RNA sequence: GUGAACCCACGUAACGUGGGCGAACAGUCCACGACCUCCCAACGGGGAAAGAAGACCCUGUGGAGCUUUACUGCAGCCUGUCGCUGGGAUGUGGACGGAUGUGCAGAGCGUAGCCGGGAGCCGUCGAUCCCCGCCUCUCCGGGGGUGGGGGGAGGCGCCCCUGUAACACCGGCCACGUCUGUUUGCAUCUCUCACCGGCGCGGAAGCGCUGGAACAACGGCAGGUGGGCAGUUUGGCUGGGGCGGCACCCCCUUGAAAAGAUAUCGAGGGGGCCCAAAGGUCGGCUUAGGCGGGACAGAAACCCGCCGUGAAGUGCAAGGGCAAAAGCCGGCUUGACAGGACCCUUGAAAGCAAGGGGUCCUGGGGGGAAACCCAGGCCUAGCGAUCCAUCGGCUCCCACCGGUGGGGGCCGGUGGUGACAGAAAAGUUACCCCAGGGAUAUUGCGCGCAGCAACCAUAAAAGCCGCCGAUACAGGCUCCUGCAGGGUGUCUGAAGACCUAUACUACUUAAGCCUCGAUAAACUCGCUUUAUU
Numbered sequence: 001g002u003g004a005a006c007c008c009a010c011g012u013a014a015c016g017u018g019g020g021c022g023a024a025c026a027g028u029c030c031a032c033g034a035c036c037u038c039c040c041a042a043c044g045g046g047g048a049a050a051g052a053a054g055a056c057c058c059u060g061u062g063g064a065g066c067u068u069u070a071c072u073g074c075a076g077c078c079u080g081u082c083g084c085u086g087g088g089a090u091g092u093g094g095a096c097g098g099a100u101g102u103g104c105a106g107a108g109c110g111u112a113g114c115c116g117g118g119a120g121c122c123g124u125c126g127a128u129c130c131c132c133g134c135c136u137c138u139c140c141g142g143g144g145g146u147g148g149g150g151g152g153a154g155g156c157g158c159c160c161c162u163g164u165a166a167c168a169c170c171g172g173c174c175a176c177g178u179c180u181g182u183u184u185g186c187a188u189c190u191c192u193c194a195c196c197g198g199c200g201c202g203g204a205a206g207c208g209c210u211g212g213a214a215c216a217a218c219g220g221c222a223g224g225u226g227g228g229c230a231g232u233u234u235g236g237c238u239g240g241g242g243c244g245g246c247a248c249c250c251c252c253u254u255g256a257a258a259a260g261a262u263a264u265c266g267a268g269g270g271g272g273c274c275c276a277a278a279g280g281u282c283g284g285c286u287u288a289g290g291c292g293g294g295a296c297a298g299a300a301a302c303c304c305g306c307c308g309u310g311a312a313g314u315g316c317a318a319g320g321g322c323a324a325a326a327g328c329c330g331g332c333u334u335g336a337c338a339g340g341a342c343c344c345u346u347g348a349a350a351g352c353a354a355g356g357g358g359u360c361c362u363g364g365g366g367g368g369a370a371a372c373c374c375a376g377g378c379c380u381a382g383c384g385a386u387c388c389a390u391c392g393g394c395u396c397c398c399a400c401c402g403g404u405g406g407g408g409g410c411c412g413g414u415g416g417u418g419a420c421a422g423a424a425a426a427g428u429u430a431c432c433c434c435a436g437g438g439a440u441a442u443u444g445c446g447c448g449c450a451g452c453a454a455c456c457a458u459a460a461a462a463g464c465c466g467c468c469g470a471u472a473c474a475g476g477c478u479c480c481u482g483c484a485g486g487g488u489g490u491c492u493g494a495a496g497a498c499c500u501a502u503a504c505u506a507c508u509u510a511a512g513c514c515u516c517g518a519u520a521a522a523c524u525c526g527c528u529u530u531a532u533u
Stems, first nucleotide, its partner, number of pairs: 015033005057437004062433002064429005070232004077224007086191018113173005120156003132147001134145004195212006235248001236246003249271006274377002280332006286312002289307006313322002337363009365374001367372001388415006395409004
RNA: Archaeal large subunit ribosomal RNA, nucleotides 4165 to 4697